[Rfam]
The family of this 101-nucleotide RNA sequence from Halobacillus sp. BAB-2008 is "Purine riboswitch aptamer". It scores 77 bits against the family's covariance model. The family's consensus secondary structure is taken from published work.

Nucleotides: 101
Base pairs, nucleotide, nucleotide: 019086020085021084022083023082024081025080029047030046031045032044033043034042057077058076059075060074061073062072063071
Number, partner (000 for none) and nucleotide at each position: 001000g002000c003000a004000g005000a006000a007000u008000u009000g010000c011000a012000u013000a014000g015000g016000c017000g018000a019086c020085c021084u022083c023082a024081u025080a026000u027000a028000a029047g030046a031045c032044g033043g034042g035000a036000a037000u038000a039000a040000g041000g042034c043033c044032c045031g046030u047029u048000c049000g050000u051000c052000u053000c054000u055000a056000c057077c058076u059075g060074g061073g062072a063071a064000c065000c066000g067000u068000a069000a070000a071063u072062u073061c074060c075059c076058g077057g078000a079000c080025u081024a082023u083022g084021a085020g086019g087000g088000g089000a090000g091000u092000u093000u094000a095000a096000g097000c098000u099000u100000g101000g